This 81-nucleotide RNA from Caenimonas sedimenti belongs to the Rfam family "Burkholderia RNA 7 (anti-hemB)".
NCBI's taxonomy places the organism under Bacteria, Pseudomonadati, Pseudomonadota, Betaproteobacteria, Caenimonas.
Rfam describes the family as follows. This RNA motif was identified by computational search in b-proteobacteria Burkholderia. Co-purified with Hfq, expression confirmed by Northern blot.
RNA sequence: CCUCCCGCUUUUCCUCCCUGAGCGGGCCUGAACUGCGUGAUUGCAGACAGGUUGCACCCCGGCAUGGCCGGGGUUUUUCUU
Numbered sequence: 001c002c003u004c005c006c007g008c009u010u011u012u013c014c015u016c017c018c019u020g021a022g023c024g025g026g027c028c029u030g031a032a033c034u035g036c037g038u039g040a041u042u043g044c045a046g047a048c049a050g051g052u053u054g055c056a057c058c059c060c061g062g063c064a065u066g067g068c069c070g071g072g073g074u075u076u077u078u079c080u081u
Stems, first nucleotide, its partner, number of pairs: 004026006027051004033046003057073007